[Rfam]
RNA: U7 small nuclear RNA
RNA sequence: CACAGUUACAGCUCUUUUACAAUUUGUCUUGCAGGCUUUCCGGUUUGUUUGUUUGUUUUUAUCAGAAAGCCUCC
Numbered sequence: 001c002a003c004a005g006u007u008a009c010a011g012c013u014c015u016u017u018u019a020c021a022a023u024u025u026g027u028c029u030u031g032c033a034g035g036c037u038u039u040c041c042g043g044u045u046u047g048u049u050u051g052u053u054u055g056u057u058u059u060u061a062u063c064a065g066a067a068a069g070c071c072u073c074c
Stems, first nucleotide, its partner, number of pairs: 034071007042063003
Dot-bracket structure: .................................(((((((.(((................))).)))))))...